The family of this 83-nucleotide sequence from Branchiostoma floridae is "mir-2060 microRNA precursor family". Its family is annotated with miRNA-mediated post-transcriptional gene silencing and RISC complex in the Gene Ontology. It scores 62 bits against the family's covariance model. Pairs were carried over by alignment from the consensus structure, which was predicted with RNAalifold.
RNA sequence: UUUGCGGAUAGUGUUCAACACCAAAGACAGAUGUGUUUGGUUGUGUGGAUGGUGUUCAGCACUAGAGACAGGUGUGAUUCCCU
Numbered sequence: 001u002u003u004g005c006g007g008a009u010a011g012u013g014u015u016c017a018a019c020a021c022c023a024a025a026g027a028c029a030g031a032u033g034u035g036u037u038u039g040g041u042u043g044u045g046u047g048g049a050u051g052g053u054g055u056u057c058a059g060c061a062c063u064a065g066a067g068a069c070a071g072g073u074g075u076g077a078u079u080c081c082c083u
Base pairs, nucleotide, nucleotide: 001068009064010063011062012061013060014059015058017056018055019054020053021052022051023050025046027044028043029042030041032039033038